[Rfam]
RNA sequence: AAGCUGUGAUGACAAGUGCACUUUAAAGUGUAAGGUUGGGUCCUUCACGUUCAUCUGUUCUUUCAGAUAUAAAUCAAGUGCUCCUGAGCUU
Numbered sequence: 001a002a003g004c005u006g007u008g009a010u011g012a013c014a015a016g017u018g019c020a021c022u023u024u025a026a027a028g029u030g031u032a033a034g035g036u037u038g039g040g041u042c043c044u045u046c047a048c049g050u051u052c053a054u055c056u057g058u059u060c061u062u063u064c065a066g067a068u069a070u071a072a073a074u075c076a077a078g079u080g081c082u083c084c085u086g087a088g089c090u091u
Base pairs, nucleotide, nucleotide: 001091002090003089004088
The family of this 91-nucleotide RNA sequence from Artemisia annua is "small nucleolar RNA snoR114". For this family Rfam cites "Mining small RNA sequencing data: a new approach to identify small nucleolar RNAs in Arabidopsis" (Chen and Wu, Nucleic Acids Res, 2009). The family has 24 seed sequences and 1,645 matches in Rfam 15.1. Lineage of the source: Eukaryota > Streptophytina > Spermatophyta > Gunneridae > Artemisia. The base pairs follow the family's consensus structure, which was predicted with RNAalifold. The family's RNA type in Rfam is C/D-box small nucleolar RNA.